[Rfam]
RNA: Nuclear RNase P
Organism: Gadus morhua
RNA sequence: GUGGGAGGAAGCUCAUUGUAGAGGCCACCAGCAGAGUGAGAAUUCACUCCAAACCAACGCCUCGGGGAAGGUCUGAGACAGGAGCCAUUGGUCCCCCUCGCAGGGGGUCACCAUAACCUGGUGAGUGGGUGCACAGAAAAUACUGGCCUCAUUGAGUGGGGAUCACAGGAGAAGCUGCUUGAUGUCCUUCAGACCAACUGGUGGAUGUGAACUCAGUGGCUUGGAAACUCCCACGGCUGGCAGAUGAGUCCAAUGGAUGAGGUGGAGCACAGCACCAGAACCCAAUUCAGACUACUCUCCUCCCAC
Numbered sequence: 001g002u003g004g005g006a007g008g009a010a011g012c013u014c015a016u017u018g019u020a021g022a023g024g025c026c027a028c029c030a031g032c033a034g035a036g037u038g039a040g041a042a043u044u045c046a047c048u049c050c051a052a053a054c055c056a057a058c059g060c061c062u063c064g065g066g067g068a069a070g071g072u073c074u075g076a077g078a079c080a081g082g083a084g085c086c087a088u089u090g091g092u093c094c095c096c097c098u099c100g101c102a103g104g105g106g107g108u109c110a111c112c113a114u115a116a117c118c119u120g121g122u123g124a125g126u127g128g129g130u131g132c133a134c135a136g137a138a139a140a141u142a143c144u145g146g147c148c149u150c151a152u153u154g155a156g157u158g159g160g161g162a163u164c165a166c167a168g169g170a171g172a173a174g175c176u177g178c179u180u181g182a183u184g185u186c187c188u189u190c191a192g193a194c195c196a197a198c199u200g201g202u203g204g205a206u207g208u209g210a211a212c213u214c215a216g217u218g219g220c221u222u223g224g225a226a227a228c229u230c231c232c233a234c235g236g237c238u239g240g241c242a243g244a245u246g247a248g249u250c251c252a253a254u255g256g257a258u259g260a261g262g263u264g265g266a267g268c269a270c271a272g273c274a275c276c277a278g279a280a281c282c283c284a285a286u287u288c289a290g291a292c293u294a295c296u297c298u299c300c301u302c303c304c305a306c
Stems, first nucleotide, its partner, number of pairs: 001306004007300003012261006021063004034049006073290005083238004093107005108124006125234005131228001146220003263277003267273002